[Rfam]
RNA: Lysine riboswitch aptamer
RNA sequence: AGAAUUGAUAGAGGCGCGAAAGUAAAGAGUAGCGCGGUGCAGGCACUCAAAUGCCGUAUGCCGCAGUGAAAGGUGCUUUUGCCGAAGCUUUCCGUUUUUGAGAGCGGGAUUGCUGGGCGUUGGGAUAAUAUCCUCUCGACUGUCGCAAAAUUUUUGCGGAGUGCUACAAUAGAU
Numbered sequence: 001a002g003a004a005u006u007g008a009u010a011g012a013g014g015c016g017c018g019a020a021a022g023u024a025a026a027g028a029g030u031a032g033c034g035c036g037g038u039g040c041a042g043g044c045a046c047u048c049a050a051a052u053g054c055c056g057u058a059u060g061c062c063g064c065a066g067u068g069a070a071a072g073g074u075g076c077u078u079u080u081g082c083c084g085a086a087g088c089u090u091u092c093c094g095u096u097u098u099u100g101a102g103a104g105c106g107g108g109a110u111u112g113c114u115g116g117g118c119g120u121u122g123g124g125a126u127a128a129u130a131u132c133c134u135c136u137c138g139a140c141u142g143u144c145g146c147a148a149a150a151u152u153u154u155u156g157c158g159g160a161g162u163g164c165u166a167c168a169a170u171a172g173a174u
Base pairs, nucleotide, nucleotide: 006169009166010165011164016082017081018080019079020078021077022076023075024074032067033066034064035063036062037061038060039059086114087113088112090109091108092107093106094105095104096103115141116140118138119137122134123133124132125131143159144158145157146156147155148154149153